[Rfam]
RNA sequence: GUGAAAUAUUUUUUAUGUAUCUUUUUAUUCACCUACUAAGCCUACUACUUCUCGCAUUUUCUGUGCGCGGUAUGCUUAUCGGUGAACGAAGUUAUUAAUAUCCACCCGCAAUAAAAAAACCGCGCAUCUGCGCGGUUUUUUAU
Numbered sequence: 001g002u003g004a005a006a007u008a009u010u011u012u013u014u015a016u017g018u019a020u021c022u023u024u025u026u027a028u029u030c031a032c033c034u035a036c037u038a039a040g041c042c043u044a045c046u047a048c049u050u051c052u053c054g055c056a057u058u059u060u061c062u063g064u065g066c067g068c069g070g071u072a073u074g075c076u077u078a079u080c081g082g083u084g085a086a087c088g089a090a091g092u093u094a095u096u097a098a099u100a101u102c103c104a105c106c107c108g109c110a111a112u113a114a115a116a117a118a119a120c121c122g123c124g125c126a127u128c129u130g131c132g133c134g135g136u137u138u139u140u141u142a143u
Base pairs, nucleotide, nucleotide: 006101007100008099009098010097013094015092016091018089025085026084027083028082029081031076046072047071048070049069053067054066055065056064115140116139117138118137119136120135121134122133123132124131125130
RNA: Leucine operon leader
Organism: Arsenophonus endosymbiont of Aleurodicus floccissimus